[Rfam]
RNA sequence: AAACUUAUCUGGCUGGGAGUUCGAGGUUAUCACCAAAACCUCGGCUCUACGGUGAGGCUUGCCCAUUGCACUUGAGGAGCAGGCUGACCUGUAUGGCGGCUCCAAACUGGGGUAGACCAACAGCUAAAUUUUUGCGUGUGUGGGACGGCGCGCCUCCCACU
Numbered sequence: 001a002a003a004c005u006u007a008u009c010u011g012g013c014u015g016g017g018a019g020u021u022c023g024a025g026g027u028u029a030u031c032a033c034c035a036a037a038a039c040c041u042c043g044g045c046u047c048u049a050c051g052g053u054g055a056g057g058c059u060u061g062c063c064c065a066u067u068g069c070a071c072u073u074g075a076g077g078a079g080c081a082g083g084c085u086g087a088c089c090u091g092u093a094u095g096g097c098g099g100c101u102c103c104a105a106a107c108u109g110g111g112g113u114a115g116a117c118c119a120a121c122a123g124c125u126a127a128a129u130u131u132u133u134g135c136g137u138g139u140g141u142g143g144g145a146c147g148g149c150g151c152g153c154c155u156c157c158c159a160c161u
Stems, first nucleotide, its partner, number of pairs: 012124004016048006023042005049092004054088001056085003060081003063077002094119003097115001098113001101110002140160005147154002
Dot-bracket structure: ...........((((((((((.(((((..........)))))))))))((((.(.(((.(((((...........)).))).)))..))))).(((((..((......))..).).))).))))...............(((((..((....)).))))).
RNA: U1 spliceosomal RNA